RNA sequence: ACAUAUGUCAAAGGGGAGUAGCUAUAGGGAAACCUAUUUCAUAAUCGUCAUUACAUGGCGUAAGCCAUCGGUUAUGAUAGUAAUUUUUAAAAUUGCUUAGCAAGACCUUUGCCUUUUAAUAGGCAUGGGUCUUUUUAUUUGCAAAAAAGGAGGAUAUUU
Numbered sequence: 001a002c003a004u005a006u007g008u009c010a011a012a013g014g015g016g017a018g019u020a021g022c023u024a025u026a027g028g029g030a031a032a033c034c035u036a037u038u039u040c041a042u043a044a045u046c047g048u049c050a051u052u053a054c055a056u057g058g059c060g061u062a063a064g065c066c067a068u069c070g071g072u073u074a075u076g077a078u079a080g081u082a083a084u085u086u087u088u089a090a091a092a093u094u095g096c097u098u099a100g101c102a103a104g105a106c107c108u109u110u111g112c113c114u115u116u117u118a119a120u121a122g123g124c125a126u127g128g129g130u131c132u133u134u135u136u137a138u139u140u141g142c143a144a145a146a147a148a149g150g151a152g153g154a155u156a157u158u159u
Stems, first nucleotide, its partner, number of pairs: 025036003039077009055068005082158003
About this RNA: Shown here is a 159-nucleotide sequence from Psychrobacillus sp. FJAT-21963, a member of the family "Manganese Mn2+ riboswitch aptamer (yybP-ykoY)". From the family's description: This RNA was originally discovered in E. coli during a large scale screen and was named SraF. The family was later found to exist upstream of related families of protein genes in many bacteria, including the the yybP and ykoK genes in B. subtilis. For this family Rfam cites "Novel small RNA-encoding genes in the intergenic regions of Escherichia coli" (Argaman et al., Curr Biol, 2001). The organism belongs to Psychrobacillus, within Bacteria.